[Rfam]
RNA: Purine riboswitch aptamer
Organism: Flavonifractor sp. An135
RNA sequence: GAGCUGACAACGGAACACGCCUAUAUAAGUCCAUGAUUCGGAUGGACGUUUCUACCAACUGCCUAACAGUUGACUAUAGGGUAUUCGCAUCUGCGA
Numbered sequence: 001g002a003g004c005u006g007a008c009a010a011c012g013g014a015a016c017a018c019g020c021c022u023a024u025a026u027a028a029g030u031c032c033a034u035g036a037u038u039c040g041g042a043u044g045g046a047c048g049u050u051u052c053u054a055c056c057a058a059c060u061g062c063c064u065a066a067c068a069g070u071u072g073a074c075u076a077u078a079g080g081g082u083a084u085u086c087g088c089a090u091c092u093g094c095g096a
Stems, first nucleotide, its partner, number of pairs: 020080006029047006056072006